[Rfam]
RNA sequence: GUCGAAGAGUAGUCAUUUGUAUACGUGAUACACUUAUACAGAGUUACACUUUUCGUAUAUAAGUGCUUCUUCUCGUUGGAGUUGUUUAUUUAAUGAGCAAUUACCUCUAAACUGAAAGCAACAAUU
Numbered sequence: 001g002u003c004g005a006a007g008a009g010u011a012g013u014c015a016u017u018u019g020u021a022u023a024c025g026u027g028a029u030a031c032a033c034u035u036a037u038a039c040a041g042a043g044u045u046a047c048a049c050u051u052u053u054c055g056u057a058u059a060u061a062a063g064u065g066c067u068u069c070u071u072c073u074c075g076u077u078g079g080a081g082u083u084g085u086u087u088a089u090u091u092a093a094u095g096a097g098c099a100a101u102u103a104c105c106u107c108u109a110a111a112c113u114g115a116a117a118g119c120a121a122c123a124a125u126u
Stems, first nucleotide, its partner, number of pairs: 003055008012047002016042008025033002064120005071115002076110006082100007
This 126-nucleotide sequence from Caenorhabditis elegans belongs to the Rfam family "Caenorhabditis snoRNA ceN81". NCBI's taxonomy places the organism under Eukaryota, Opisthokonta, Eumetazoa, Peloderinae, Caenorhabditis. Gene Ontology terms of the family: nucleolus and RNA processing. It is one of the family's seed sequences. On this family, see Jia et al., BMC Mol Biol 2007: "Systematic identification of non-coding RNA 2,2,7-trimethylguanosine cap structures in Caenorhabditis elegans".